[Rfam]
RNA sequence: AUUAUUUCUGUGUGCAAGUGUGUUCCUCUGUUUGACGCUAAAGGUGGAUUCUCCAAAUGUAGCACUCCCCAAGUGUUGUUGCUUCCUUUUGUAGUAUUCUUACUUUAGCGUCAAGAGACGAACAAACUCGCACGCCAAAAGAUGU
Numbered sequence: 001a002u003u004a005u006u007u008c009u010g011u012g013u014g015c016a017a018g019u020g021u022g023u024u025c026c027u028c029u030g031u032u033u034g035a036c037g038c039u040a041a042a043g044g045u046g047g048a049u050u051c052u053c054c055a056a057a058u059g060u061a062g063c064a065c066u067c068c069c070c071a072a073g074u075g076u077u078g079u080u081g082c083u084u085c086c087u088u089u090u091g092u093a094g095u096a097u098u099c100u101u102a103c104u105u106u107a108g109c110g111u112c113a114a115g116a117g118a119c120g121a122a123c124a125a126a127c128u129c130g131c132a133c134g135c136c137a138a139a140a141g142a143u144g145u
Stems, first nucleotide, its partner, number of pairs: 002144001005141003009137002014131002017128003021124005027118003031115012044103002046099004051094001054091003059085001061083004065078001068075001

MIR6234 microRNA precursor family: a 145-nucleotide RNA sequence from Digitaria exilis. Pairs were carried over by alignment from the consensus structure, which was predicted with RNAalifold. It scores 98 bits against the family's covariance model. Rfam links the family to the GO terms miRNA-mediated post-transcriptional gene silencing and RISC complex.